[Rfam]
A member of the RNA family "mir-9223 microRNA precursor family" from Myotis brandtii, 75 nucleotides long.
The base pairs follow the family's consensus structure, which was predicted with RNAalifold.
Gene Ontology terms of the family: miRNA-mediated post-transcriptional gene silencing and RISC complex.
The match comes from Rfam's covariance-model search (64 bits).
The family has 9 seed sequences and 14,641 matches in Rfam 15.1.
The organism belongs to Myotis, within Eukaryota.
RNA sequence: AGCGGUUCUCAGGUGACACACCCCAGAAUUGGGCUCCCUCCUCUCUGGUUCGAGGUAUGUCACCCAAGAACUUCA
Numbered sequence: 001a002g003c004g005g006u007u008c009u010c011a012g013g014u015g016a017c018a019c020a021c022c023c024c025a026g027a028a029u030u031g032g033g034c035u036c037c038c039u040c041c042u043c044u045c046u047g048g049u050u051c052g053a054g055g056u057a058u059g060u061c062a063c064c065c066a067a068g069a070a071c072u073u074c075a
Stems, first nucleotide, its partner, number of pairs: 002074001005071005012064006020056003026051008